[Rfam]
RNA sequence: GGGGACCUUCGGGGCCCUAUACCCACGGCGGAUACGUCCGCCCAAACAUAGCGGGUCGUCAAAGACCUGCACUUGCUAACGGAAGACAGAAA
Numbered sequence: 001g002g003g004g005a006c007c008u009u010c011g012g013g014g015c016c017c018u019a020u021a022c023c024c025a026c027g028g029c030g031g032a033u034a035c036g037u038c039c040g041c042c043c044a045a046a047c048a049u050a051g052c053g054g055g056u057c058g059u060c061a062a063a064g065a066c067c068u069g070c071a072c073u074u075g076c077u078a079a080c081g082g083a084a085g086a087c088a089g090a091a092a
Stems, first nucleotide, its partner, number of pairs: 001018004006014003028070004033065001
Rfam assigns this 92-nucleotide RNA from Marivita geojedonensis to the family "L2-Alphaproteobacteria ribosomal protein leader". The family's consensus secondary structure is taken from published work. A reference for the family is Eckert and Weinberg (2020), "Discovery of 20 novel ribosomal leader candidates in bacteria and archaea", BMC Microbiol.